[Rfam]
Description:
The record is a 279-nucleotide sequence from Fusarium albosuccineum, which matches "A. fumigatus sRNA Afu_309" in Rfam. The organism belongs to Fusarium decemcellulare species complex, within Eukaryota. Pairs were carried over by alignment from the consensus structure, which was predicted with WAR.

RNA sequence: UUUUCUCUUACAACCACGGAUCUGUGCCCAGCGAUCCUCUGCUCUUCGGAGUCAGGGUCGAUUGCUGUGCAGCUCGAUAACCCCAGGGAGCCAUCAACUUGCUAUGGUGUCAAUCAUCCUAUCGACAGGUCCAAGAGUAACUGGUGCUUCAGCUACCGCAUUCGCUGCCUUUCGGCAGCUUGAGUGUUGUGGCUGGAGCAUGCGAGACGCUAUAUUCCACCCCCCUUUUCCGAGGCCGUCGGUCGGUGAGGUUGGGGAAAACCAUGGCUACCUACAUCU
Numbered sequence: 001u002u003u004u005c006u007c008u009u010a011c012a013a014c015c016a017c018g019g020a021u022c023u024g025u026g027c028c029c030a031g032c033g034a035u036c037c038u039c040u041g042c043u044c045u046u047c048g049g050a051g052u053c054a055g056g057g058u059c060g061a062u063u064g065c066u067g068u069g070c071a072g073c074u075c076g077a078u079a080a081c082c083c084c085a086g087g088g089a090g091c092c093a094u095c096a097a098c099u100u101g102c103u104a105u106g107g108u109g110u111c112a113a114u115c116a117u118c119c120u121a122u123c124g125a126c127a128g129g130u131c132c133a134a135g136a137g138u139a140a141c142u143g144g145u146g147c148u149u150c151a152g153c154u155a156c157c158g159c160a161u162u163c164g165c166u167g168c169c170u171u172u173c174g175g176c177a178g179c180u181u182g183a184g185u186g187u188u189g190u191g192g193c194u195g196g197a198g199c200a201u202g203c204g205a206g207a208c209g210c211u212a213u214a215u216u217c218c219a220c221c222c223c224c225c226u227u228u229u230c231c232g233a234g235g236c237c238g239u240c241g242g243u244c245g246g247u248g249a250g251g252u253u254g255g256g257g258a259a260a261a262c263c264a265u266g267g268c269u270a271c272c273u274a275c276a277u278c279u
Base pairs, nucleotide, nucleotide: 018132019131020130021129022128023127024126025125026070027069029067030066031065033063034062035061036060037057038056039055040054041053042051043050044049078124080122087111088110090108091107092106144201145200148197149196150195151194152193153192160185161184162183163182164179165178166177167176168175169174206272209268210267211266212265213264222257223256224255225254230251231250234244235243236242237241